Rfam assigns this 75-nucleotide RNA to the family "Streptococcus sRNA SpF59 (ldcC RNA)". The literature on the family includes a 2012 paper in PLoS Pathog by Mann et al., "Control of virulence by small RNAs in Streptococcus pneumoniae". The sequence is in the family's curated seed alignment.

[Rfam]
RNA sequence: UGACCAUUUCUUUAUCGAAUUUUACGCAGUGAUAAAGAAAUUGAAUGCCAUACGGACAGCUAGGUCAAAUGCCGA
Numbered sequence: 001u002g003a004c005c006a007u008u009u010c011u012u013u014a015u016c017g018a019a020u021u022u023u024a025c026g027c028a029g030u031g032a033u034a035a036a037g038a039a040a041u042u043g044a045a046u047g048c049c050a051u052a053c054g055g056a057c058a059g060c061u062a063g064g065u066c067a068a069a070u071g072c073c074g075a
Stems, first nucleotide, its partner, number of pairs: 001067005006041012